[Rfam]
RNA: Small nucleolar RNA R11/Z151
Organism: Camellia sinensis
RNA sequence: CGGCUAAUGAUGAUAAAUAAAAAUUAUCUUAGAAAUUUUCAGUGUGACUGCUUUUUAUCAAUUAUCGGAUUUUGUUACACACAUUGAAGCCC
Numbered sequence: 001c002g003g004c005u006a007a008u009g010a011u012g013a014u015a016a017a018u019a020a021a022a023a024u025u026a027u028c029u030u031a032g033a034a035a036u037u038u039u040c041a042g043u044g045u046g047a048c049u050g051c052u053u054u055u056u057a058u059c060a061a062u063u064a065u066c067g068g069a070u071u072u073u074g075u076u077a078c079a080c081a082c083a084u085u086g087a088a089g090c091c092c
Base pairs, nucleotide, nucleotide: 002091003090004089005088